[Rfam]
RNA sequence: UUCCGUCGAUCGGGAGAGACCGGCACCCUCAGGGAAGGCUGGCGCCGAAGGAGCAACCGCCCCGGAAACUCUCAGGCAAAAGGACCGAUCGACGAUC
Numbered sequence: 001u002u003c004c005g006u007c008g009a010u011c012g013g014g015a016g017a018g019a020c021c022g023g024c025a026c027c028c029u030c031a032g033g034g035a036a037g038g039c040u041g042g043c044g045c046c047g048a049a050g051g052a053g054c055a056a057c058c059g060c061c062c063c064g065g066a067a068a069c070u071c072u073c074a075g076g077c078a079a080a081a082g083g084a085c086c087g088a089u090c091g092a093c094g095a096u097c
Stems, first nucleotide, its partner, number of pairs: 006092008020042004044077003047073002051071003057065002

Glycine riboswitch aptamer: a 97-nucleotide sequence from Hydrogenophaga aromaticivorans. Taxonomically the source falls in Hydrogenophaga (Bacteria, Betaproteobacteria, Burkholderiales, Comamonadaceae).